[Rfam]
RNA sequence: CCCUUCUCUCUAAAGCACCCUGCUAAAACUGCAGGAGCCAAGCCUCACAGGUUUAGCUCAUGUGGCCGUGUAAGCAUGGGUACACCAGGGAAGGAAAUGAAAGACACAGUAUCAGAAAUGAGGCUCGGGGGGGACCUCUUUCUAAAUGUCCAGUGUCCUUUGUCUCAAGAUCCUGUGUUACAUAU
Number, nucleotide and partner (000 for none) at each position: 001c000002c000003c000004u000005u000006c000007u000008c000009u000010c000011u000012a000013a000014a000015g000016c000017a000018c080019c079020c000021u076022g075023c074024u073025a000026a000027a000028a069029c068030u000031g066032c000033a000034g000035g059036a000037g057038c056039c000040a054041a053042g052043c051044c050045u000046c000047a000048c000049a000050g044051g043052u042053u041054u040055a000056g038057c037058u000059c035060a000061u000062g000063u000064g000065g000066c031067c000068g029069u028070g000071u000072a000073a024074g023075c022076a021077u000078g000079g019080g018081u000082a000083c000084a000085c000086c000087a000088g000089g000090g000091a000092a000093g000094g000095a000096a000097a000098u000099g000100a000101a000102a000103g179104a178105c177106a176107c175108a174109g173110u000111a171112u000113c000114a000115g000116a000117a000118a000119u000120g000121a000122g000123g000124c000125u000126c000127g156128g000129g154130g000131g000132g151133g150134a149135c000136c000137u000138c000139u000140u000141u000142c000143u000144a000145a000146a000147u000148g000149u134150c133151c132152a000153g000154u129155g000156u127157c000158c000159u000160u000161u000162g000163u000164c000165u000166c000167a000168a000169g000170a000171u111172c000173c109174u108175g107176u106177g105178u104179u103180a000181c000182a000183u000184a000185u000
This 185-nucleotide sequence from Cottoperca gobio belongs to the Rfam family "Small nucleolar RNA SNORA81".
NCBI's taxonomy places the organism under Eukaryota, Opisthokonta, Teleostei, Eurypterygia, Cottoperca.